[Rfam]
RNA: Potassium channel RNA editing signal
RNA sequence: UUAUUCGACAAACAGACCUGUCGGCGUUUGGGGAAAAAUUGUGGGAUCACUGUGUGCCAUUGCUGGUGUGCUGACAAUCGCACUGCCGGUACCGGUUAUCGUCAGUAAU
Dot-bracket structure: .(..(.(((.(...((((.((..((......((.(........((...........))..........).))................)))).)))).).))).)..).